[Rfam]
RNA sequence: UGAGACAAGUAGAAGCACCCGCUUCUCACCUGUUCAACGCAAUGGCAGUUGACUGGUUAAACAUCUUUAAACUUGACAUUAAAGACGUGUGGGUGCAUUUGUGUGCCCACUUUUUUUAUGGAUA
Numbered sequence: 001u002g003a004g005a006c007a008a009g010u011a012g013a014a015g016c017a018c019c020c021g022c023u024u025c026u027c028a029c030c031u032g033u034u035c036a037a038c039g040c041a042a043u044g045g046c047a048g049u050u051g052a053c054u055g056g057u058u059a060a061a062c063a064u065c066u067u068u069a070a071a072c073u074u075g076a077c078a079u080u081a082a083a084g085a086c087g088u089g090u091g092g093g094u095g096c097a098u099u100u101g102u103g104u105g106c107c108c109a110c111u112u113u114u115u116u117u118a119u120g121g122a123u124a
Stems, first nucleotide, its partner, number of pairs: 011026006028057003036050003039046002089110009
Background: This 124-nucleotide RNA sequence from Oceanobacillus limi belongs to the Rfam family "Ribosomal protein L20 leader". Gene Ontology term of the family: regulation of gene expression. The family's RNA type in Rfam is cis-regulatory leader. This family is a putative r-protein leader autoregulatory structure found in B. subtilis and other low-GC Gram-positive bacteria.